The family of this 46-nucleotide sequence from Chelydra serpentina is "Histone 3' UTR stem-loop". The match comes from Rfam's covariance-model search (43 bits). The literature on the family includes a 2013 paper in Science by Tan et al., "Structure of histone mRNA stem-loop, human stem-loop binding protein, and 3'hExo ternary complex". The base pairs follow the family's consensus structure, which is taken from published work. Taxonomically the source falls in Chelydra (Eukaryota, Teleostomi, Tetrapoda, Chelydroidea).
[Rfam]
RNA sequence: CCAAAGGCUCUUUUAAGAGCCACUAACUUUACACUCAAAGAGUUGU
Numbered sequence: 001c002c003a004a005a006g007g008c009u010c011u012u013u014u015a016a017g018a019g020c021c022a023c024u025a026a027c028u029u030u031a032c033a034c035u036c037a038a039a040g041a042g043u044u045g046u
Stems, first nucleotide, its partner, number of pairs: 006021006